[Rfam]
RNA: c-di-GMP-I riboswitch aptamer
Nucleotides: 076
Stems, first nucleotide, its partner, number of pairs: 012037002018031005040070004047066002049062003
Number, partner (000 for none) and nucleotide at each position: 001000a002000a003000a004000u005000u006000u007000a008000a009000u010000a011000g012037g013036c014000a015000a016000a017000c018031c019030c020029g021028g022027a023000g024000u025000g026000a027022u028021c029020c030019g031018g032000u033000g034000a035000c036013g037012c038000a039000a040070a041069g042068c043067u044000a045000u046000a047066g048065g049062g050061a051060c052000u053000u054000u055000u056000u057000u058000a059000a060051g061050u062049u063000a064000g065048c066047c067043a068042g069041u070040u071000g072000c073000a074000u075000a076000a